[Rfam]
L4-Archaeoglobi ribosomal protein leades: an 87-nucleotide RNA sequence. The family's consensus secondary structure is taken from published work. It is annotated as a cis-regulatory leader. For this family Rfam cites "Discovery of 20 novel ribosomal leader candidates in bacteria and archaea" (Eckert and Weinberg, BMC Microbiol, 2020).

RNA sequence: CUGACGAAUCCGCGGGGUGGACGCACGAACCGUGCGAGCCCAGUUCUGGUUAUAUCGGAUACCGGAAGCGGAGAUAGUAACCGUCAG
Numbered sequence: 001c002u003g004a005c006g007a008a009u010c011c012g013c014g015g016g017g018u019g020g021a022c023g024c025a026c027g028a029a030c031c032g033u034g035c036g037a038g039c040c041c042a043g044u045u046c047u048g049g050u051u052a053u054a055u056c057g058g059a060u061a062c063c064g065g066a067a068g069c070g071g072a073g074a075u076a077g078u079a080a081c082c083g084u085c086a087g
Stems, first nucleotide, its partner, number of pairs: 001087005009072005015041003022036005044067006051061003